[Rfam]
Notes:
This 229-nucleotide RNA from Geomicrobium sp. JCM 19038 belongs to the Rfam family "T-box leader".

RNA sequence: AUAAAAACGUUGACGGGCAAUAGUAUUAAACGGAAGUUUCUCAGAGAGCCGGUGGUCGCUGCGAACCGGUAAACAUUCGAUUAAGAAUCCAGCCUUGAGUGAAGAGCGGAACGAGGAGUGUUUGCUUCUUAACUAAGUUCUUUCGUAUCCCCUACGUUAUUGGGCUUGAGCUGGUUGGUCUUUUAUGGACCAACAACGAGGGUGGCAUCGCGGUUUAACCGUCCCUGUU
Numbered sequence: 001a002u003a004a005a006a007a008c009g010u011u012g013a014c015g016g017g018c019a020a021u022a023g024u025a026u027u028a029a030a031c032g033g034a035a036g037u038u039u040c041u042c043a044g045a046g047a048g049c050c051g052g053u054g055g056u057c058g059c060u061g062c063g064a065a066c067c068g069g070u071a072a073a074c075a076u077u078c079g080a081u082u083a084a085g086a087a088u089c090c091a092g093c094c095u096u097g098a099g100u101g102a103a104g105a106g107c108g109g110a111a112c113g114a115g116g117a118g119u120g121u122u123u124g125c126u127u128c129u130u131a132a133c134u135a136a137g138u139u140c141u142u143u144c145g146u147a148u149c150c151c152c153u154a155c156g157u158u159a160u161u162g163g164g165c166u167u168g169a170g171c172u173g174g175u176u177g178g179u180c181u182u183u184u185a186u187g188g189a190c191c192a193a194c195a196a197c198g199a200g201g202g203u204g205g206c207a208u209c210g211c212g213g214u215u216u217a218a219c220c221g222u223c224c225c226u227g228u229u
Base pairs, nucleotide, nucleotide: 007100008099015095016094017093018092026084027083028082029081031079037073038072039071048070049069050068051067052066053065102142103141104140105139106138107137144156145155146154174194175193176192177191178190179189180188199226200225201224202223210222211221212220213219214218

Uncharged tRNA acts as the effector for transcription antitermination of genes in the T-box leader family. The family's consensus secondary structure is taken from published work.